Rfam assigns this 64-nucleotide RNA from Trifolium medium to the family "MIR5291 microRNA precursor family". The family's consensus secondary structure was predicted with RNAalifold.
[Rfam]
RNA sequence: GAUAGAUUAAAUCUAAUCCAUUAACAAUUUUUAUUGUCUAAUGAAUGGAUUGGAUGAUUUUCGA
Numbered sequence: 001g002a003u004a005g006a007u008u009a010a011a012u013c014u015a016a017u018c019c020a021u022u023a024a025c026a027a028u029u030u031u032u033a034u035u036g037u038c039u040a041a042u043g044a045a046u047g048g049a050u051u052g053g054a055u056g057a058u059u060u061u062c063g064a
Stems, first nucleotide, its partner, number of pairs: 004060004011055012026039001029036001
Dot-bracket structure: ...((((...((((((((((((...(..(......)..)....)))))))))))).))))....